[Rfam]
RNA sequence: GCCGAGCUUGGUAACGCUUGCUUGUGACCUCUGUGGGGGCUUUAAGGUGAUGGAACAUGGGGCUGGCUUGCAGAGUCGGAUCUGGAGUUGGUCCAAAUCUGGCUUGCCCGUUCCAAGCUAAGGGCUGAGCCGAGGGGCUUGAGUGAAAACUUCCGAGUCUCGUGGUCUCCUAAAGUGGAGGGUACUGCGUGAGGCUGGUUUCACAGAGCAGCGAAGACCUCCCUCUCUUAGCAGUGGAAGGAUAACAGGCUUGAUCCUCUCUAAUCCAACAUGGCUCAGUGAGCUGAUCCUAACUGGACCAUCAUCUUU
Dot-bracket structure: (((((((..(......)..))))....(((....))))))...((((((((((..((((((.(.(..((((.(((((((((..((.(..((.......(.((((((.((.(((((.((((((((..((((((.(((((((((((....)))..)))))))).))).)))(....).(((((....(.(((....(((......)))....))).)..)))))..))))))))..)))))))....)))))).)..)).)))..)))).....))))).)))).).).).)))..))..)))))))))).
This 309-nucleotide sequence from Gossypium hirsutum belongs to the Rfam family "Plant signal recognition particle RNA". Rfam links the family to the GO terms SRP-dependent cotranslational protein targeting to membrane, signal sequence recognition and signal recognition particle, endoplasmic reticulum targeting. The family is grouped with related families in Rfam's "SRP clan". It is annotated as a non-coding RNA gene. A search with the family's covariance model found it, with a score of 224 bits. For this family Rfam cites "Towards the structure of the mammalian signal recognition particle" (Wild et al., Curr Opin Struct Biol, 2002). The base pairs follow the family's consensus structure, which is taken from published work.